The record is a 484-nucleotide part of an RNA from Haemaphysalis longicornis, which matches "Eukaryotic large subunit ribosomal RNA" in Rfam. Lineage of the source: Eukaryota > Chelicerata > Acari > Ixodoidea > Haemaphysalis. The base pairs follow the family's consensus structure, which is taken from published work.
RNA sequence: GGUAGUAGCAAAUACUCAAGUGAGAACCUUGAGGACUGAAGUGGAGAAGGGUUCCAUGUGAACAGCAGUUGAACAUGGGUCAGUCGGUCCUUAGGGAAAGGAGAAAUCCUUUCAGAAGCGGGCGCGUUUGUGCAGCUCAGUCUGUGAUACGGAGACGCCCCGCUGCAACCAAAAGGGAAUCGGGUUAACAGUCCCGAACCCGGCUACGGAGAUCGGCUCUUCGGAGCCCAGUGCGGCAACGCAAACCAGCUCGGAGACGCCGAUGGGAGCCCCGGGAAGAGUUUUCUUUUCUCUGUAAGGAGAUCGAGUCCCUGGAAUGGGUUCACCCCGAGAUAGGGACGGUGGCUCCGUAGAGCAGUGCGGCUCUUGCGCUGUCCGGUGCGCUCCUGUCGGCCCUUGAAAAUCCGAGUGAGGGAGUGUGAUUUUCGUGCCGGACCGUACCCACAUCCGCAGCAGGUCUCCAAGGUGAACAGCCUCUAGUCGA
Dot-bracket structure: ..............((((((.......))))))((((.....((((..((...((((((...((.....)).))))))......(((.((...(((((.(((....))))))......(((......................................)))......))....))...(((((........)))))..((((..................(((((.(...((((....))))......((((((...((((.(((((((.(((.(.(((.........))).)....((((......((((((...((((.....))))...))))))......))))......(((((((.....)))))))..)))...))))))).)))).........))))))...........)..)))))..)))).)))..)).....((......)).)))).((((.....))))..))))..